[Rfam]
RNA sequence: GCCGAGCUCAGUAACGAGGGCUUGUGACCCGAGUGGGGGCAUCAAUGUGGUGGAACAUGGGGUCAAAUCCUUUGGGCCGGGUCUGGUGUGGCAUUCGCCCGUUCCAAGCCGACAGUUGGUCCAUGUGGUUUGGGCGAAGGCCCAGGUCACGUAAAUCCUAGAGUGGAGGGGCCCGCGUCAGGCUGGCUUCACAGAGCAGCGAAAACUUCCCGCUCUCGGCAGUGGGAGAAUAACGGGCCGGUGUCACCCAGGUCCACCGUGGUCCAAUGGGCUGAGUCCAACUGAACCACCACUUUU
Numbered sequence: 001g002c003c004g005a006g007c008u009c010a011g012u013a014a015c016g017a018g019g020g021c022u023u024g025u026g027a028c029c030c031g032a033g034u035g036g037g038g039g040c041a042u043c044a045a046u047g048u049g050g051u052g053g054a055a056c057a058u059g060g061g062g063u064c065a066a067a068u069c070c071u072u073u074g075g076g077c078c079g080g081g082u083c084u085g086g087u088g089u090g091g092c093a094u095u096c097g098c099c100c101g102u103u104c105c106a107a108g109c110c111g112a113c114a115g116u117u118g119g120u121c122c123a124u125g126u127g128g129u130u131u132g133g134g135c136g137a138a139g140g141c142c143c144a145g146g147u148c149a150c151g152u153a154a155a156u157c158c159u160a161g162a163g164u165g166g167a168g169g170g171g172c173c174c175g176c177g178u179c180a181g182g183c184u185g186g187c188u189u190c191a192c193a194g195a196g197c198a199g200c201g202a203a204a205a206c207u208u209c210c211c212g213c214u215c216u217c218g219g220c221a222g223u224g225g226g227a228g229a230a231u232a233a234c235g236g237g238c239c240g241g242u243g244u245c246a247c248c249c250a251g252g253u254c255c256a257c258c259g260u261g262g263u264c265c266a267a268u269g270g271g272c273u274g275a276g277u278c279c280a281a282c283u284g285a286a287c288c289a290c291c292a293c294u295u296u297u
Base pairs, nucleotide, nucleotide: 001040002039003038004023005022006021007020008019009018028037029036030035044296045295047293048292049291050290051289052288053287056284057283058281060279062277063276066273069270070269072267073266074265075264076263077262078261079255080254081253082252083251084250085249086248088247089246090245091244092243093242094241095236096235097234100228102227103226104225105224106223108220109219110218111217112216114214115213116212118157119156120155123152124151125150126149127148128147129146130145131144132143133142134141135140158163165210166209167208168207169206176201177200178199183194184193185192
The family of this 297-nucleotide RNA from Corymbia citriodora is "Plant signal recognition particle RNA". Rfam links the family to the GO terms SRP-dependent cotranslational protein targeting to membrane, signal sequence recognition and signal recognition particle, endoplasmic reticulum targeting. The organism belongs to Corymbia citriodora, within Eukaryota. The literature on the family includes a 2002 paper in Curr Opin Struct Biol by Wild et al., "Towards the structure of the mammalian signal recognition particle". It is annotated as a non-coding RNA gene.